[Rfam]
RNA sequence: CUGACAGAAGAGAGUGAGCACACGCUUCCAGCAAUCGUAUGAGGGCAUACCUUUGCGAGUGCGUGCUCACUUCUCUUUCUGUCAG
Numbered sequence: 001c002u003g004a005c006a007g008a009a010g011a012g013a014g015u016g017a018g019c020a021c022a023c024g025c026u027u028c029c030a031g032c033a034a035u036c037g038u039a040u041g042a043g044g045g046c047a048u049a050c051c052u053u054u055g056c057g058a059g060u061g062c063g064u065g066c067u068c069a070c071u072u073c074u075c076u077u078u079c080u081g082u083c084a085g
Stems, first nucleotide, its partner, number of pairs: 001085009010075003013071009023061003
Dot-bracket structure: (((((((((((((((((((((.(((.................................))).))))))))).))).)))))))))

The family of this 85-nucleotide RNA sequence from Juglans regia is "mir-156 microRNA precursor family". The family has 10 seed sequences and 1,401 matches in Rfam 15.1. The source organism's lineage runs through Eukaryota, Magnoliopsida, Pentapetalae, Fagales and Juglans. Pairs were carried over by alignment from the consensus structure, which was predicted with PFOLD. This family represents the plant microRNA (miRNA) precursor mir-156.